[Rfam]
Shown here is a 73-nucleotide RNA from Peromyscus maniculatus, a member of the family "Small nucleolar RNA SNORD63".
It scores 77 bits against the family's covariance model.
Rfam links the family to the GO terms RNA processing and nucleolus.
Rfam describes the family as follows. snoRNA U63 is found in both humans and mice.
On this family, see Galardi et al., Mol Cell Biol 2002: "Purified box C/D snoRNPs are able to reproduce site-specific 2'-O-methylation of target RNA in vitro".
RNA sequence: GUGCAGUGAUGUAUGUAUUUGUCAACACAUCAUUCUGAAAAAAGUAUGUGAUGACAUCUUAUGACUGAGCACA
Numbered sequence: 001g002u003g004c005a006g007u008g009a010u011g012u013a014u015g016u017a018u019u020u021g022u023c024a025a026c027a028c029a030u031c032a033u034u035c036u037g038a039a040a041a042a043a044g045u046a047u048g049u050g051a052u053g054a055c056a057u058c059u060u061a062u063g064a065c066u067g068a069g070c071a072c073a
Stems, first nucleotide, its partner, number of pairs: 001072004